Shown here is a 79-nucleotide RNA from Pseudomonas matsuisoli, a member of the family "Pseudomonas sRNA P31". The family's consensus secondary structure was predicted with CMfinder. A reference for the family is Livny et al. (2006), "Identification of 17 Pseudomonas aeruginosa sRNAs and prediction of sRNA-encoding genes in 10 diverse pathogens using the bioinformatic tool sRNAPredict2", Nucleic Acids Res. Taxonomically the source falls in Pseudomonas (Bacteria, Gammaproteobacteria, Pseudomonadales, Pseudomonadaceae).

[Rfam]
RNA sequence: GAAAGACCUCCCAAGGAUCUAGAGCUGACGCAAACGCAGAUUGUAAAAAAGCGGGAUGACGUAUCGACCGUCACCCCGC
Numbered sequence: 001g002a003a004a005g006a007c008c009u010c011c012c013a014a015g016g017a018u019c020u021a022g023a024g025c026u027g028a029c030g031c032a033a034a035c036g037c038a039g040a041u042u043g044u045a046a047a048a049a050a051g052c053g054g055g056a057u058g059a060c061g062u063a064u065c066g067a068c069c070g071u072c073a074c075c076c077c078g079c
Stems, first nucleotide, its partner, number of pairs: 005042001008039002022031001025030001051079004057073005